[Rfam]
Description: The family of this 114-nucleotide RNA sequence from Paraglaciecola hydrolytica is "Histidine operon leader". Lineage of the source: Bacteria > Pseudomonadati > Gammaproteobacteria > Alteromonadaceae > Paraglaciecola. The base pairs follow the family's consensus structure, which is taken from published work. Rfam's curators write: At least 6 amino acid operons are known to be regulated by attenuation. In each a leader sequence of 150-200 bp is found upstream of the first gene in the operon. This leader sequence can assume two different secondary structures known as the terminator and the anti-terminator structure. In each case the leader also codes for very short peptide sequence that is rich in the end product amino acid of the operon. The terminator structure is recognised as a termination signal for RNA polymerase and the operon is not transcribed. This structure forms when the cell has an excess of the regulatory amino acid and ribosome movement over the leader transcript is not impeded. When there is a deficiency of the charged tRNA of the regulatory amino acid the ribosome translating the leader peptide stalls and the antiterminator structure can form. This allows RNA polymerase to transcribe the operon. In the Rfam alignment the consensus structure is of the terminator structure. By type it is a cis-regulatory leader.
RNA sequence: UCGUCCAUCACCACAAAGCUUAACCUUUCAGGUCUAGGCUGGAAGGUUUAUUGAAUCCUUCCAGUGGCGCAGAAAAUUUUCUCAACCCUCGGAAGGCAACUUCCGGGGGUUUUU
Numbered sequence: 001u002c003g004u005c006c007a008u009c010a011c012c013a014c015a016a017a018g019c020u021u022a023a024c025c026u027u028u029c030a031g032g033u034c035u036a037g038g039c040u041g042g043a044a045g046g047u048u049u050a051u052u053g054a055a056u057c058c059u060u061c062c063a064g065u066g067g068c069g070c071a072g073a074a075a076a077u078u079u080u081c082u083c084a085a086c087c088c089u090c091g092g093a094a095g096g097c098a099a100c101u102u103c104c105g106g107g108g109g110u111u112u113u114u
Stems, first nucleotide, its partner, number of pairs: 005038002010033003018029001039064008084111012